[Rfam]
RNA: Ribosomal protein L10 leader
RNA sequence: GAAACACGUAAAUAAUCACCGUAGACAGCGGGUGCGAAAGCUCAAUAGCCCGCCGAGGUACAAUAUAUAAGAUAUUGGACCUCGCUCUCUGAGCGGGGUCUUUCGUGCUUACAUA
Numbered sequence: 001g002a003a004a005c006a007c008g009u010a011a012a013u014a015a016u017c018a019c020c021g022u023a024g025a026c027a028g029c030g031g032g033u034g035c036g037a038a039a040g041c042u043c044a045a046u047a048g049c050c051c052g053c054c055g056a057g058g059u060a061c062a063a064u065a066u067a068u069a070a071g072a073u074a075u076u077g078g079a080c081c082u083c084g085c086u087c088u089c090u091g092a093g094c095g096g097g098g099u100c101u102u103u104c105g106u107g108c109u110u111a112c113a114u115a
Base pairs, nucleotide, nucleotide: 028053029052030051031050032049033048034041035040078100079099080098081097082096083095084094085093086092087091